[Rfam]
RNA sequence: ACGUUCCUCACUGGAGAGAGGUCGGCGAUGGCAGUUCUGCCAUGAACCGGCCCACCGAAGGGGCAAGCAGCCUCCCGCGCAACCCGCGGUGCUGUCAAUCUCUCAGGUAAAGCGGACAGCGGGGGCCCU
Numbered sequence: 001a002c003g004u005u006c007c008u009c010a011c012u013g014g015a016g017a018g019a020g021g022u023c024g025g026c027g028a029u030g031g032c033a034g035u036u037c038u039g040c041c042a043u044g045a046a047c048c049g050g051c052c053c054a055c056c057g058a059a060g061g062g063g064c065a066a067g068c069a070g071c072c073u074c075c076c077g078c079g080c081a082a083c084c085c086g087c088g089g090u091g092c093u094g095u096c097a098a099u100c101u102c103u104c105a106g107g108u109a110a111a112g113c114g115g116a117c118a119g120c121g122g123g124g125g126c127c128c129u
Stems, first nucleotide, its partner, number of pairs: 006124004011119003020052006054108003057104002061102003067095005

The record is a 129-nucleotide RNA from Ideonella dechloratans, which matches "Glycine riboswitch aptamer" in Rfam. About the family: This family represents the bacterial glycine riboswitch. Glycine riboswitches usually consist of two metabolite-binding aptamers domains with similar structures in tandem. The aptamers cooperatively bind glycine to regulate the expression of downstream genes. In Bacillus subtilis, this riboswitch is found upstream of the gcvT operon which controls glycine degradation.